[Rfam]
Nucleotides: 209
Base pairs, nucleotide, nucleotide: 006097007096008095009094010093012091013089014088015087019085020084021083022082023081024080025079029077030076031075032074033073034072035071036070037069038068039067040066041065049064050063051062052061098147099146100145101144102143104141111140112139164202165201166200167199168198169197171195172194174192175191176190178188179187181185
Number, partner (000 for none) and nucleotide at each position: 001000a002000u003000g004000u005000a006097u007096u008095c009094u010093g011000u012091u013089c014088g015087u016000u017000u018000a019085a020084g021083a022082u023081a024080a025079g026000c027000c028000a029077g030076c031075a032074a033073u034072a035071a036070a037069a038068g039067a040066g041065c042000g043000g044000u045000a046000a047000u048000a049064u050063c051062a052061u053000c054000c055000a056000c057000a058000a059000u060000a061052g062051u063050g064049a065041g066040c067039u068038u069037u070036u071035u072034u073033g074032u075031u076030g077029u078000a079025c080024u081023u082022a083021u084020u085019u086000u087015a088014c089013g090000a091012g092000u093010u094009g095008g096007g097006a098147c099146a100145u101144a102143g103000a104141u105000a106000c107000g108000g109000g110000u111140g112139a113000a114000g115000u116000g117000u118000a119000a120000c121000c122000a123000u124000c125000u126000g127000a128000g129000g130000u131000u132000a133000u134000a135000u136000g137000g138000u139112u140111u141104a142000c143102c144101u145100a146099u147098g148000u149000c150000u151000u152000u153000u154000u155000a156000a157000c158000g159000u160000u161000g162000a163000u164202a165201u166200g167199c168198a169197g170000a171195c172194u173000a174192a175191a176190g177000c178188u179187c180000c181185c182000a183000c184000u185181g186000c187179g188178g189000a190176u191175u192174u193000u194172a195171g196000u197169c198168u199167g200166c201165a202164u203000u204000u205000u206000u207000u208000a209000u

Description:
Rfam assigns this 209-nucleotide sequence from Oxobacter pfennigii to the family "Enterococcus sRNA 1300". The organism belongs to Oxobacter, within Bacteria. On this family, see Sinel et al., Sci Rep 2017: "Small RNAs in vancomycin-resistant Enterococcus faecium involved in daptomycin response and resistance". Rfam describes the family as follows. Expressed in mid and late exponential phases of growth. Expression remained uniform under daptomycin exposure.